[Rfam]
RNA sequence: CUCUUAUCGAGAGCAGGUGGAGGGACUGGCCCGAUGAAACCCGGCAACCGGCAACUGCGAGCGCAGUUGCAGCGGUGCUAAUUCCAGCAGAACGUUACGUUCUGGCAGAUAAGAG
Number, nucleotide and partner (000 for none) at each position: 001c115002u114003c113004u112005u111006a110007u109008c108009g000010a000011g000012a000013g042014c000015a000016g041017g040018u039019g000020g000021a000022g032023g031024g030025a000026c087027u086028g085029g084030c024031c023032c022033g000034a000035u000036g000037a000038a000039a018040c017041c016042c013043g079044g078045c077046a076047a000048c075049c074050g000051g070052c069053a068054a067055c066056u065057g000058c000059g000060a000061g000062c000063g000064c000065a056066g055067u054068u053069g052070c051071a000072g000073c000074g049075g048076u046077g045078c044079u043080a000081a000082u000083u107084c029085c028086a027087g026088c104089a103090g102091a101092a100093c099094g000095u000096u000097a000098c000099g093100u092101u091102c090103u089104g088105g000106c000107a083108g008109a007110u006111a005112a004113g003114a002115g001
About this RNA: Rfam assigns this 115-nucleotide RNA from Fervidicola ferrireducens to the family "SAM riboswitch aptamer (S box leader)". Gene Ontology term of the family: regulation of gene expression. NCBI's taxonomy places the organism under Bacteria, Bacillati, Bacillota, Clostridia, Fervidicola. The match comes from Rfam's covariance-model search (89 bits).